[Rfam]
RNA: GcvB RNA
Organism: Haemophilus influenzae
RNA sequence: UCUUAAAAUAUCGCCAUACUUAAUGAUUGGUAAUUCCUUACUAGUUAAUGAGUUUCAGACUUAAGUAUGAUGUUGUGUUUGCAUAUAGUUCGGGAAACCGAACUUGAGUAACAAUUUGUUACUCAUUUACUUCCUGUAUAUUAUUAAACCGAUUUGGUUAAACGCUGCUCUCAUUGAGUGGCGUUUUUUU
Numbered sequence: 001u002c003u004u005a006a007a008a009u010a011u012c013g014c015c016a017u018a019c020u021u022a023a024u025g026a027u028u029g030g031u032a033a034u035u036c037c038u039u040a041c042u043a044g045u046u047a048a049u050g051a052g053u054u055u056c057a058g059a060c061u062u063a064a065g066u067a068u069g070a071u072g073u074u075g076u077g078u079u080u081g082c083a084u085a086u087a088g089u090u091c092g093g094g095a096a097a098c099c100g101a102a103c104u105u106g107a108g109u110a111a112c113a114a115u116u117u118g119u120u121a122c123u124c125a126u127u128u129a130c131u132u133c134c135u136g137u138a139u140a141u142u143a144u145u146a147a148a149c150c151g152a153u154u155u156g157g158u159u160a161a162a163c164g165c166u167g168c169u170c171u172c173a174u175u176g177a178g179u180g181g182c183g184u185u186u187u188u189u190u
Stems, first nucleotide, its partner, number of pairs: 011059002022053001024047010087104007107123006140158003163183008